[Rfam]
RNA sequence: ACUCACGUCAUUGGGGAGUAGCCGCCCUGCCGCCCGGCAGGGGCGCACGUCAACAGACUUGGCCGCAAGGCCAUGGCGUGCGCAGCCCAAGGCGC
Numbered sequence: 001a002c003u004c005a006c007g008u009c010a011u012u013g014g015g016g017a018g019u020a021g022c023c024g025c026c027c028u029g030c031c032g033c034c035c036g037g038c039a040g041g042g043g044c045g046c047a048c049g050u051c052a053a054c055a056g057a058c059u060u061g062g063c064c065g066c067a068a069g070g071c072c073a074u075g076g077c078g079u080g081c082g083c084a085g086c087c088c089a090a091g092g093c094g095c
Stems, first nucleotide, its partner, number of pairs: 026041003043083010060073005
A member of the RNA family "Manganese Mn2+ riboswitch aptamer (yybP-ykoY)" from Ideonella livida, 95 nucleotides long. Rfam describes the family as follows. This RNA was originally discovered in E. coli during a large scale screen and was named SraF. The family was later found to exist upstream of related families of protein genes in many bacteria, including the the yybP and ykoK genes in B. subtilis. The specific functions of these proteins are unknown, but this structured RNA element may be involved in their genetic regulation as a riboswitch. The source organism's lineage runs through Bacteria, Betaproteobacteria, Burkholderiales, Sphaerotilaceae and Ideonella. It scores 75 bits against the family's covariance model.